[Rfam]
RNA sequence: AUAUACACUGAGUGGCCAGAUUAUUGUGAGUUCAGAGAUCAUCAUAAUCUGGCCACUCAGUGUAGUU
Numbered sequence: 001a002u003a004u005a006c007a008c009u010g011a012g013u014g015g016c017c018a019g020a021u022u023a024u025u026g027u028g029a030g031u032u033c034a035g036a037g038a039u040c041a042u043c044a045u046a047a048u049c050u051g052g053c054c055a056c057u058c059a060g061u062g063u064a065g066u067u
Stems, first nucleotide, its partner, number of pairs: 004064014019049006026042003
RNA: mir-9256 microRNA precursor family